A member of the RNA family "c-di-GMP-I riboswitch aptamer" from Vogesella sp. LIG4, 84 nucleotides long. GEMM was predicted in a large-scale screen for bacterial structured RNA regulatory elements. The family's consensus secondary structure is taken from published work.
RNA sequence: CCACCGAACCGGCAAAACUGCGCGAAAGCCAGUGACGCAAAGCUUCCGGGCUCUGGAUUUUUCUGUGCCAGCGGGGCUGCCCAG
Numbered sequence: 001c002c003a004c005c006g007a008a009c010c011g012g013c014a015a016a017a018c019u020g021c022g023c024g025a026a027a028g029c030c031a032g033u034g035a036c037g038c039a040a041a042g043c044u045u046c047c048g049g050g051c052u053c054u055g056g057a058u059u060u061u062u063c064u065g066u067g068c069c070a071g072c073g074g075g076g077c078u079g080c081c082c083a084g
Stems, first nucleotide, its partner, number of pairs: 012038002017033004022029002041078004046074003049069003056063002